Nucleotides: 149
Base pairs, nucleotide, nucleotide: 014138015137016136017135018134019133020132021131022130023129024128025127027126028125030123031122033120034119035118036117037116038115040113041112042111043110046107047106048105049104050103051102052101067096068095070093071092073090074089
Number, partner (000 for none) and nucleotide at each position: 001000g002000u003000g004000u005000u006000g007000a008000a009000g010000c011000a012000g013000c014138a015137g016136c017135u018134u019133g020132c021131a022130g023129u024128u025127u026000c027126a028125u029000c030123a031122u032000c033120c034119a035118c036117u037116c038115u039000c040113u041112c042111c043110g044000u045000u046107u047106c048105c049104c050103u051102u052101c053000c054000a055000a056000u057000g058000g059000c060000u061000g062000u063000u064000c065000u066000g067096g068095a069000g070093g071092a072000u073090u074089c075000a076000a077000u078000g079000g080000u081000u082000u083000c084000c085000u086000u087000g088000a089074g090073g091000c092071u093070u094000g095068u096067u097000g098000c099000u100000u101052g102051a103050a104049g105048g106047g107046a108000c109000u110043c111042g112041g113040a114000a115038a116037g117036a118035g119034u120033g121000u122031a123030u124000a125028a126027u127025g128024a129023a130022u131021u132020g133019c134018a135017a136016g137015c138014u139000u140000g141000a142000u143000a144000u145000g146000g147000g148000c149000a